About this RNA:
The record is a 308-nucleotide RNA sequence, which matches "Bacterial RNase P class B" in Rfam. From the family's description: Ribonuclease P (RNase P) is a ubiquitous endoribonuclease, found in archaea, bacteria and eukarya as well as chloroplasts and mitochondria. Its best characterised activity is the generation of mature 5'-ends of tRNAs by cleaving the 5'-leader elements of precursor-tRNAs. Cellular RNase Ps are ribonucleoproteins. RNA from bacterial RNase Ps retains its catalytic activity in the absence of the protein subunit, i.e. it is a ribozyme. Isolated eukaryotic and archaeal RNase P RNA has not been shown to retain its catalytic function, but is still essential for the catalytic activity of the holoenzyme. Although the archaeal and eukaryotic holoenzyme s have a much greater protein content than the bacterial ones, the RNA cores from all the three lineages are homologous -- helices corresponding to P1, P2, P3, P4, and P10/11 are common to all cellular RNase P RNAs. Yet, there is considerable sequence variation, particularly among the eukaryotic RNAs. Its family is annotated with tRNA processing, dimeric ribonuclease P complex and ribonuclease P activity in the Gene Ontology. Rfam's curators put it in the seed alignment.

[Rfam]
RNA sequence: UUGCACAGCCAACUGCUGCAGAUUUUAAUUAUGUAGAGGAAAAUCCGCUCUAACACUUGCUGCGAUGCAAGUAGUGUUCAUGCUAGGCCCAAUAAGCCUAGGCAGUUAUUUUGUAAAUAAUUGACGACCAGUGCAACAGAGACGAGCUUAUUUAGUUAAGGUGCAACGAUGUAAACUCCAUGAGUUAGAAACCCAAAUUUCGGUAGGGGAACCUAGUUAAGAUAAAUGAAUUGAGACUGGGAAGUUUUUUAAACUUAGAUAAAUAGUUGGCACUGUAUUUUUUACAGCACAAAAAGCGGUUUAUCGUG
Numbered sequence: 001u002u003g004c005a006c007a008g009c010c011a012a013c014u015g016c017u018g019c020a021g022a023u024u025u026u027a028a029u030u031a032u033g034u035a036g037a038g039g040a041a042a043a044u045c046c047g048c049u050c051u052a053a054c055a056c057u058u059g060c061u062g063c064g065a066u067g068c069a070a071g072u073a074g075u076g077u078u079c080a081u082g083c084u085a086g087g088c089c090c091a092a093u094a095a096g097c098c099u100a101g102g103c104a105g106u107u108a109u110u111u112u113g114u115a116a117a118u119a120a121u122u123g124a125c126g127a128c129c130a131g132u133g134c135a136a137c138a139g140a141g142a143c144g145a146g147c148u149u150a151u152u153u154a155g156u157u158a159a160g161g162u163g164c165a166a167c168g169a170u171g172u173a174a175a176c177u178c179c180a181u182g183a184g185u186u187a188g189a190a191a192c193c194c195a196a197a198u199u200u201c202g203g204u205a206g207g208g209g210a211a212c213c214u215a216g217u218u219a220a221g222a223u224a225a226a227u228g229a230a231u232u233g234a235g236a237c238u239g240g241g242a243a244g245u246u247u248u249u250u251a252a253a254c255u256u257a258g259a260u261a262a263a264u265a266g267u268u269g270g271c272a273c274u275g276u277a278u279u280u281u282u283u284a285c286a287g288c289a290c291a292a293a294a295a296g297c298g299g300u301u302u303a304u305c306g307u308g
Stems, first nucleotide, its partner, number of pairs: 004308003007304001008271007016036005041302003045299005050188005055072006078183005083101006102125001103123008126178002131176002133172003147160004192208003212241007242256006273287005